[Rfam]
RNA sequence: CAACUUGAGAGUUUGAUCCUGGCUCAGAACGAACGCUGGCGGCAGGCUUAACACAUGCAAGUCGAACGAAGUCUUCGGACUUAGUGGCGCACGGGUGAGUAACACGUGGGAAUAUACCUUUCGGUGGGGGAUAACGUCGGGAAACUGACGCUAAUACCGCAUACGCCCCUUGGGGGAAAGAUUUAUCGCCGAGAGAUUAGCCCGCGUCCGAUUAGCUAGUUGGUGAGGUAACGGCUCACCAAGGCGACGAUCGGUAGCUGGUCUGAGAGGAUGAUCAGCCACACUGGGACUGAGACACGGCCCAGACUCCUACGGGAGGCAGCAGUGGGGAAUAUUGGACAAUGGGCGCAAGCCUGAUCCAGCCAUGCCGCGUGAGUGAUGAAGGCCUUAGGGUUGUAAAGCUCUUUCGACGGGGACGAUGAUGACGGUACCCGUAGAAGAAGCCCCGGCUAACUUCGUGCCAGCAGCCGCGGUAAUACGAAGGGGGCUAGCGUUGUUCGGAAUUACUG
Numbered sequence: 001c002a003a004c005u006u007g008a009g010a011g012u013u014u015g016a017u018c019c020u021g022g023c024u025c026a027g028a029a030c031g032a033a034c035g036c037u038g039g040c041g042g043c044a045g046g047c048u049u050a051a052c053a054c055a056u057g058c059a060a061g062u063c064g065a066a067c068g069a070a071g072u073c074u075u076c077g078g079a080c081u082u083a084g085u086g087g088c089g090c091a092c093g094g095g096u097g098a099g100u101a102a103c104a105c106g107u108g109g110g111a112a113u114a115u116a117c118c119u120u121u122c123g124g125u126g127g128g129g130g131a132u133a134a135c136g137u138c139g140g141g142a143a144a145c146u147g148a149c150g151c152u153a154a155u156a157c158c159g160c161a162u163a164c165g166c167c168c169c170u171u172g173g174g175g176g177a178a179a180g181a182u183u184u185a186u187c188g189c190c191g192a193g194a195g196a197u198u199a200g201c202c203c204g205c206g207u208c209c210g211a212u213u214a215g216c217u218a219g220u221u222g223g224u225g226a227g228g229u230a231a232c233g234g235c236u237c238a239c240c241a242a243g244g245c246g247a248c249g250a251u252c253g254g255u256a257g258c259u260g261g262u263c264u265g266a267g268a269g270g271a272u273g274a275u276c277a278g279c280c281a282c283a284c285u286g287g288g289a290c291u292g293a294g295a296c297a298c299g300g301c302c303c304a305g306a307c308u309c310c311u312a313c314g315g316g317a318g319g320c321a322g323c324a325g326u327g328g329g330g331a332a333u334a335u336u337g338g339a340c341a342a343u344g345g346g347c348g349c350a351a352g353c354c355u356g357a358u359c360c361a362g363c364c365a366u367g368c369c370g371c372g373u374g375a376g377u378g379a380u381g382a383a384g385g386c387c388u389u390a391g392g393g394u395u396g397u398a399a400a401g402c403u404c405u406u407u408c409g410a411c412g413g414g415g416a417c418g419a420u421g422a423u424g425a426c427g428g429u430a431c432c433c434g435u436a437g438a439a440g441a442a443g444c445c446c447c448g449g450c451u452a453a454c455u456u457c458g459u460g461c462c463a464g465c466a467g468c469c470g471c472g473g474u475a476a477u478a479c480g481a482a483g484g485g486g487g488c489u490a491g492c493g494u495u496g497u498u499c500g501g502a503a504u505u506a507c508u509g
Stems, first nucleotide, its partner, number of pairs: 009025005027499004032495006039371006045364002047329001052327003056324003061088003066085002069082005095282003104207007113199002118195007126160001128158002135150006166175003180187002208254003215245003220242008257279004261272004284305005307318004335361001337360003343356005374404004384395004408440001410435005418426001443488005454483005464471002
RNA: Bacterial small subunit ribosomal RNA, nucleotides 1 to 509